[Rfam]
RNA: MIR6217 microRNA precursor family
Organism: Miscanthus lutarioriparius
RNA sequence: UGGCUACAAAAUAACUUAUUCUGUAGCGACUUUAGUUACAAUAAUUACUAUGUUAAUUUACGAGAUUAUAGUAACUCGUUACUAGGUUUAUUAUAACGUUAUGUUAAAUAUCCCCAUGUGUUAUAGCAACUCAACUAUCGUAAAUAUGUAUUGACAUUAUCGUAAAUUAGUAUACAAAAUUAUCGUAAAUGGAAGUGACUACAGAAUAACUUAUUUUGUAGCUA
Numbered sequence: 001u002g003g004c005u006a007c008a009a010a011a012u013a014a015c016u017u018a019u020u021c022u023g024u025a026g027c028g029a030c031u032u033u034a035g036u037u038a039c040a041a042u043a044a045u046u047a048c049u050a051u052g053u054u055a056a057u058u059u060a061c062g063a064g065a066u067u068a069u070a071g072u073a074a075c076u077c078g079u080u081a082c083u084a085g086g087u088u089u090a091u092u093a094u095a096a097c098g099u100u101a102u103g104u105u106a107a108a109u110a111u112c113c114c115c116a117u118g119u120g121u122u123a124u125a126g127c128a129a130c131u132c133a134a135c136u137a138u139c140g141u142a143a144a145u146a147u148g149u150a151u152u153g154a155c156a157u158u159a160u161c162g163u164a165a166a167u168u169a170g171u172a173u174a175c176a177a178a179a180u181u182a183u184c185g186u187a188a189a190u191g192g193a194a195g196u197g198a199c200u201a202c203a204g205a206a207u208a209a210c211u212u213a214u215u216u217u218g219u220a221g222c223u224a
Stems, first nucleotide, its partner, number of pairs: 001224014016209011029196005036188004041183006049174013064161003068157002073151001079143004086135003089128001091126009103113001